[Rfam]
Rfam assigns this 173-nucleotide RNA to the family "Clostridiales-1 RNA". The family's RNA type in Rfam is small RNA.
RNA sequence: UGAUACCAGGGUCAAAAGGUCAGAAAGCCGACGCAAGCUUGCUUGCAAGAGGUUUUUUGAACUCUUGACCCGCCAAAAACAUGAGUAAGUAGCCAUUUUUCAAAGAAAAAUGAGCGGAUUACGAAUGUUUUUGAAGAUUGCGAGAGUGCAAAGCACGUAGCAAUCUGGUAUCA
Numbered sequence: 001u002g003a004u005a006c007c008a009g010g011g012u013c014a015a016a017a018g019g020u021c022a023g024a025a026a027g028c029c030g031a032c033g034c035a036a037g038c039u040u041g042c043u044u045g046c047a048a049g050a051g052g053u054u055u056u057u058u059g060a061a062c063u064c065u066u067g068a069c070c071c072g073c074c075a076a077a078a079a080c081a082u083g084a085g086u087a088a089g090u091a092g093c094c095a096u097u098u099u100u101c102a103a104a105g106a107a108a109a110a111u112g113a114g115c116g117g118a119u120u121a122c123g124a125a126u127g128u129u130u131u132u133g134a135a136g137a138u139u140g141c142g143a144g145a146g147u148g149c150a151a152a153g154c155a156c157g158u159a160g161c162a163a164u165c166u167g168g169u170a171u172c173a
Base pairs, nucleotide, nucleotide: 001173002172003171004170005169006168007167011069012068013067014066017063018062020060021059022058023057024056025055026054027053028052029051033046034045035044036043037042075132076131077130078129079128080127081126082125085122086121087120088119092115093114094112095111096110097109098108099107100106101105135166136165137164138163139162140161141160146156147155148154149153